[Rfam]
RNA sequence: GCCCAGGUGCUGGAAUUGGUAGACAGGCAUGGUUGAGGGCCAUGUGUCCAUUAGGGCGUAUGGGUUCGACUCCCAUCCUGGGCA
Numbered sequence: 001g002c003c004c005a006g007g008u009g010c011u012g013g014a015a016u017u018g019g020u021a022g023a024c025a026g027g028c029a030u031g032g033u034u035g036a037g038g039g040c041c042a043u044g045u046g047u048c049c050a051u052u053a054g055g056g057c058g059u060a061u062g063g064g065u066u067c068g069a070c071u072c073c074c075a076u077c078c079u080g081g082g083c084a
Stems, first nucleotide, its partner, number of pairs: 001083007010026003028044005060076005

The record is an 84-nucleotide sequence from Zunongwangia atlantica, which matches "tRNA" in Rfam. The base pairs follow the family's consensus structure, which is taken from published work.